The family of this 164-nucleotide sequence from Pleurocapsales cyanobacterium LEGE 06147 is "c-di-AMP riboswitch aptamer (ydaO/yuaA leader)". Gene Ontology terms of the family: regulation of gene expression and cyclic-di-AMP binding. NCBI's taxonomy places the organism under Bacteria, Bacillati, Cyanobacteriota, Cyanophyceae, Pleurocapsales. It scores 68 bits against the family's covariance model.
RNA sequence: AUUAUCAGUUAGCCUAAUCUAGCGUUUACUAGCUGGAGCGGAGGAACCAAAUUGUGGGGCUUAUUUCUGGCUUACUUACAGUUUUAAAACUGGAAAGAGCAAGAGAGGGAUAUCUCUCAAUCCCAGCCCGUCAGCUAACUUCGUAGGCAUUGAGAGGAGACUGA
Numbered sequence: 001a002u003u004a005u006c007a008g009u010u011a012g013c014c015u016a017a018u019c020u021a022g023c024g025u026u027u028a029c030u031a032g033c034u035g036g037a038g039c040g041g042a043g044g045a046a047c048c049a050a051a052u053u054g055u056g057g058g059g060c061u062u063a064u065u066u067c068u069g070g071c072u073u074a075c076u077u078a079c080a081g082u083u084u085u086a087a088a089a090c091u092g093g094a095a096a097g098a099g100c101a102a103g104a105g106a107g108g109g110a111u112a113u114c115u116c117u118c119a120a121u122c123c124c125a126g127c128c129c130g131u132c133a134g135c136u137a138a139c140u141u142c143g144u145a146g147g148c149a150u151u152g153a154g155a156g157g158a159g160a161c162u163g164a
Stems, first nucleotide, its partner, number of pairs: 012148003018037006038144006048056002057129003065105004108123004